[Rfam]
Nucleotides: 142
Base pairs, nucleotide, nucleotide: 001142002141003140004139005138
Number, partner (000 for none) and nucleotide at each position: 001142a002141u003140g004139g005138c006000a007000g008000u009000g010000a011000u012000g013000a014000u015000u016000g017000g018000c019000g020000c021000a022000g023000g024000g025000g026000u027000a028000c029000g030000g031000a032000c033000c034000u035000c036000a037000g038000c039000u040000g041000g042000a043000u044000c045000a046000u047000g048000g049000g050000a051000g052000c053000u054000g055000a056000a057000u058000g059000c060000a061000a062000a063000c064000c065000g066000g067000u068000a069000a070000u071000u072000c073000c074000a075000g076000u077000g078000c079000a080000g081000c082000u083000g084000g085000c086000a087000u088000g089000u090000g091000g092000c093000u094000g095000g096000c097000u098000c099000g100000c101000u102000g103000g104000a105000a106000a107000c108000g109000g110000g111000c112000u113000u114000g115000c116000a117000u118000g119000a120000g121000a122000c123000u124000u125000u126000g127000c128000c129000a130000g131000a132000a133000a134000c135000u136000g137000a138005g139004c140003c141002a142001u